[Rfam]
A member of the RNA family "ASpks TB sRNA" from Actinospica durhamensis, 75 nucleotides long. For this family Rfam cites "Identification of small RNAs in Mycobacterium tuberculosis" (Arnvig and Young, Mol Microbiol, 2009). The family's consensus secondary structure is taken from published work. The source organism's lineage runs through Bacteria, Bacillati, Actinomycetota, Catenulisporales and Actinospica.

RNA sequence: CUUCAGCGAUCCGAGCCGCACCGGCCGGUCGGCCGGACGCUCCUGCCCGUACGUGGCGAUCAGCGCCUGCGCCUC
Numbered sequence: 001c002u003u004c005a006g007c008g009a010u011c012c013g014a015g016c017c018g019c020a021c022c023g024g025c026c027g028g029u030c031g032g033c034c035g036g037a038c039g040c041u042c043c044u045g046c047c048c049g050u051a052c053g054u055g056g057c058g059a060u061c062a063g064c065g066c067c068u069g070c071g072c073c074u075c
Stems, first nucleotide, its partner, number of pairs: 015025003032070002038065002044059001047056003